Shown here is a 267-nucleotide sequence from Paenibacillus abyssi, a member of the family "Bacterial large signal recognition particle RNA". It is annotated as a non-coding RNA gene. Its Rfam clan is "SRP clan". Pairs were carried over by alignment from the consensus structure, which is taken from published work. About the family: The signal recognition particle (SRP) is a universally conserved ribonucleoprotein involved in the co-translational targeting of proteins to membranes. Gene Ontology terms of the family: signal recognition particle, plasma membrane targeting and SRP-dependent cotranslational protein targeting to membrane, signal sequence recognition. It scores 204 bits against the family's covariance model. Lineage of the source: Bacteria > Bacillati > Caryophanales > Paenibacillaceae > Paenibacillus.
RNA sequence: CCGUGCUAGACGGGGAGGUAGCGGUGCCCUGUAACUCGCAAUCCGCUGUAGCGAGGUUGAAUUCCUGCUUUAGGUUAUGUUGAUGUAGGGUCUGGCGCUUGUGAACAGUGUUGACGGUCGGGUCCUCCGCAAUGGACGCUUGUGAACCCGGUCAGGUCCGGAAGGAAGCAGCCGUAAGCAAGUUUGUCUAUGUGCCGGGGGAGUGCCUGGUCAGAGCUGGAAUCAAGAGUGCCGCCUGGGUCGCAUUAAUCAAGGGCAGGUGCACGG
Numbered sequence: 001c002c003g004u005g006c007u008a009g010a011c012g013g014g015g016a017g018g019u020a021g022c023g024g025u026g027c028c029c030u031g032u033a034a035c036u037c038g039c040a041a042u043c044c045g046c047u048g049u050a051g052c053g054a055g056g057u058u059g060a061a062u063u064c065c066u067g068c069u070u071u072a073g074g075u076u077a078u079g080u081u082g083a084u085g086u087a088g089g090g091u092c093u094g095g096c097g098c099u100u101g102u103g104a105a106c107a108g109u110g111u112u113g114a115c116g117g118u119c120g121g122g123u124c125c126u127c128c129g130c131a132a133u134g135g136a137c138g139c140u141u142g143u144g145a146a147c148c149c150g151g152u153c154a155g156g157u158c159c160g161g162a163a164g165g166a167a168g169c170a171g172c173c174g175u176a177a178g179c180a181a182g183u184u185u186g187u188c189u190a191u192g193u194g195c196c197g198g199g200g201g202a203g204u205g206c207c208u209g210g211u212c213a214g215a216g217c218u219g220g221a222a223u224c225a226a227g228a229g230u231g232c233c234g235c236c237u238g239g240g241u242c243g244c245a246u247u248a249a250u251c252a253a254g255g256g257c258a259g260g261u262g263c264a265c266g267g
Base pairs, nucleotide, nucleotide: 001267002266003265004264005263006262009058010057011056012030013029014028015027017025019023035055036054037053038052039051064260065259066258067257068256069255070254073251074250075249076248077247081243082242083241084240086238087237088236089235093231094230098227099226100225101224106220107218108217109216116212117211118210119209120208121207122206123205124201125200126199127198128197129196130192131191133190134189135188136187137186138183139182140181141180142179143178149174150173151172152171157166158165159164